[Rfam]
Description: A member of the RNA family "Bacterial RNase P class A" from Crateriforma conspicua, 412 nucleotides long. About the family: Ribonuclease P (RNase P) is a ubiquitous endoribonuclease, found in archaea, bacteria and eukarya as well as chloroplasts and mitochondria. The family is grouped with related families in Rfam's "RNaseP clan". It is annotated as a ribozyme.

RNA sequence: GGAGCGGAUGGGACGGUCGCUGGCGGUUGUGCCUUUGGUACGGCUGCUGGAGGAAAGUCCGGGCACCACAGGGCAGGAUGGUCGAUAACGUCGACCGGUCGCGAGACCAGGGCAAGUGCAACAGAAAGCAAACCGCCGAACGGUGUCCCACUGGGGGCAUGCGUGGUAAGGGUGAAACGGUGCGGUAAGAGCGCACCAGCGGCUGAGGCGACUCGGCCGGCUGGGUAAACCCCAUCCGGUGCUAGACCAAACAGGGUGACGUCGGCUCGACCGAUGCAAGGCGGCCCGCCUUGACCACACCCGGGUAGGUCGCGAUGGAGGCGGCGAGCAAUCGCCGUGCACAGAUAAAUGGCCGUCGCCGGCGGGGCAAACCCGUCGGAUACAGAACCCGGCUUACAAGUCCGCUCCGCCG
Numbered sequence: 001g002g003a004g005c006g007g008a009u010g011g012g013a014c015g016g017u018c019g020c021u022g023g024c025g026g027u028u029g030u031g032c033c034u035u036u037g038g039u040a041c042g043g044c045u046g047c048u049g050g051a052g053g054a055a056a057g058u059c060c061g062g063g064c065a066c067c068a069c070a071g072g073g074c075a076g077g078a079u080g081g082u083c084g085a086u087a088a089c090g091u092c093g094a095c096c097g098g099u100c101g102c103g104a105g106a107c108c109a110g111g112g113c114a115a116g117u118g119c120a121a122c123a124g125a126a127a128g129c130a131a132a133c134c135g136c137c138g139a140a141c142g143g144u145g146u147c148c149c150a151c152u153g154g155g156g157g158c159a160u161g162c163g164u165g166g167u168a169a170g171g172g173u174g175a176a177a178c179g180g181u182g183c184g185g186u187a188a189g190a191g192c193g194c195a196c197c198a199g200c201g202g203c204u205g206a207g208g209c210g211a212c213u214c215g216g217c218c219g220g221c222u223g224g225g226u227a228a229a230c231c232c233c234a235u236c237c238g239g240u241g242c243u244a245g246a247c248c249a250a251a252c253a254g255g256g257u258g259a260c261g262u263c264g265g266c267u268c269g270a271c272c273g274a275u276g277c278a279a280g281g282c283g284g285c286c287c288g289c290c291u292u293g294a295c296c297a298c299a300c301c302c303g304g305g306u307a308g309g310u311c312g313c314g315a316u317g318g319a320g321g322c323g324g325c326g327a328g329c330a331a332u333c334g335c336c337g338u339g340c341a342c343a344g345a346u347a348a349a350u351g352g353c354c355g356u357c358g359c360c361g362g363c364g365g366g367g368c369a370a371a372c373c374c375g376u377c378g379g380a381u382a383c384a385g386a387a388c389c390c391g392g393c394u395u396a397c398a399a400g401u402c403c404g405c406u407c408c409g410c411c412g
Stems, first nucleotide, its partner, number of pairs: 001408009011397001012357007020050012055395003059392005064241004071287004076237005081095005096110001097108004111232002116230002118226002133171002135167004141161002179197006199221001200219008245311004254302005278292005320340001321338007
Dot-bracket structure: (((((((((.((((((((.((((((((((((.......))))))))))))....[[[.[[[[[((((...[[[[.((((((((((.....)))))(((((....)))).)((...((((.............((((((..((.................))..))))..)).......((((((.......)))))).(((((((((....)))))))).)...))..)))))))))))))...((((.....(((((...................(((((.]]]]))))).....))))).....))))........((((((((....))))))).)..........)))))))..............................]]]]]]]].)..)))))))))....